[Rfam]
RNA sequence: GAAAGUAAAGGGGCAAUAGUGGUUUCUUGAUAGAACAAGAAAUUGAUUAUUGCCCCUUUACUA
Numbered sequence: 001g002a003a004a005g006u007a008a009a010g011g012g013g014c015a016a017u018a019g020u021g022g023u024u025u026c027u028u029g030a031u032a033g034a035a036c037a038a039g040a041a042a043u044u045g046a047u048u049a050u051u052g053c054c055c056c057u058u059u060a061c062u063a
Stems, first nucleotide, its partner, number of pairs: 007059012022043001024041006

Shown here is a 63-nucleotide RNA sequence from Stegnosperma halimifolium, a member of the family "Plastid-psbA-4 3UTR RNA".
The family is grouped with related families in Rfam's "Plastid-psbA 3UTR RNA clan".
The family's consensus secondary structure was predicted with LocARNA.
On this family, see Richter et al., Plant Commun 2023: "Retrograde signaling in plants: A critical review focusing on the GUN pathway and beyond".
About the family: Plastid psbA-4 is a non-coding RNA (ncRNA) present in plastids. It was identified in inverted repeat sequences in the 3 prime untranslate region (3UTR) of photosystem II quinone-binding protein (psbA).